Rfam assigns this 392-nucleotide sequence from Mycolicibacterium chitae to the family "Bacterial RNase P class A". Taxonomically the source falls in Mycobacterium (subgen. Mycolicibacterium) (Bacteria, Bacillati, Actinomycetota, Mycobacteriales). By type it is a ribozyme. It scores 289 bits against the family's covariance model. Ribonuclease P (RNase P) is a ubiquitous endoribonuclease, found in archaea, bacteria and eukarya as well as chloroplasts and mitochondria.
RNA sequence: CGAGUUGGCUGGGCGGCCGCGGACCUCAGAGCAAUCUGGGGCUCGAGGAAAGUCCGGACUUCACAGAGCAGGGUGAUUGCUAACGGCAAUCCGAGGUGACUCGCGGGAAAGUGCCACAGAAAACAGACCGCCAGCGAUGGUAAGGGUGAAACGGUGCGGUAAGAGCGCACCAGCGCUCCGGGUGACCGGAGUGGCUAGGCAAACCCCACCCGAAGCAAGGCCAAGAGGCCGUGCCCGGCACGGCUGCGCAGGCGCUCGAGGGCUGCUCGCCCGAGCCUGCGGGUAGGCCGCUCGAGGUACCCGGCAACGGUGUGCCCAGAUGGAUGGUCGCCGCCGAGCACCCCGGAAACGGGGGCUCGGAACAGAAUCCGGCUUACAGGCCAACUCGUUCG
Number, nucleotide and partner (000 for none) at each position: 001c388002g387003a386004g385005u384006u383007g382008g381009c380010u379011g377012g332013g331014c330015g329016g328017c327018c326019g000020c045021g044022g043023a000024c041025c040026u039027c038028a037029g000030a000031g000032c000033a000034a000035u000036c000037u028038g027039g026040g025041g024042c000043u022044c021045g020046a000047g000048g000049a000050a375051a374052g373053u000054c372055c371056g370057g369058a368059c215060u214061u213062c212063a000064c000065a000066g268067a267068g266069c265070a000071g211072g210073g209074u208075g207076a090077u089078u088079g087080c086081u000082a000083a000084c000085g000086g080087c079088a078089a077090u076091c105092c103093g102094a101095g100096g000097u000098g000099a000100c095101u094102c093103g092104c000105g091106g206107g205108a000109a000110a000111g204112u203113g200114c199115c198116a000117c000118a000119g000120a000121a000122a000123a000124c000125a000126g000127a000128c145129c144130g141131c140132c139133a138134g000135c000136g000137a000138u133139g132140g131141u130142a000143a000144g129145g128146g000147u000148g000149a000150a000151a000152c000153g171154g170155u169156g168157c167158g166159g000160u000161a000162a000163g000164a000165g000166c158167g157168c156169a155170c154171c153172a000173g195174c193175g192176c191177u190178c189179c188180g187181g186182g000183u000184g000185a000186c181187c180188g179189g178190a177191g176192u175193g174194g000195c173196u000197a000198g115199g114200c113201a000202a000203a112204c111205c107206c106207c075208a074209c073210c072211c071212g062213a061214a060215g059216c000217a000218a000219g289220g288221c287222c286223a000224a000225g000226a000227g000228g000229c000230c000231g000232u000233g000234c000235c000236c000237g000238g000239c000240a000241c000242g000243g000244c000245u000246g000247c000248g280249c279250a278251g277252g276253c275254g000255c000256u000257c000258g000259a000260g272261g271262g270263c269264u000265g069266c068267u067268c066269g263270c262271c261272c260273g000274a000275g253276c252277c251278u250279g249280c248281g000282g000283g000284u000285a000286g222287g221288c220289c219290g000291c000292u000293c000294g000295a000296g315297g000298u000299a000300c000301c310302c309303g308304g000305c000306a000307a000308c303309g302310g301311u000312g000313u000314g000315c296316c000317c000318a000319g000320a000321u000322g000323g000324a000325u000326g018327g017328u016329c015330g014331c013332c012333g000334c000335c000336g000337a000338g000339c000340a000341c000342c000343c000344c000345g000346g000347a000348a000349a000350c000351g000352g000353g000354g000355g000356c000357u000358c000359g000360g000361a000362a000363c000364a000365g000366a000367a000368u058369c057370c056371g055372g054373c052374u051375u050376a000377c011378a000379g010380g009381c008382c007383a006384a005385c004386u003387c002388g001389u000390u000391c000392g000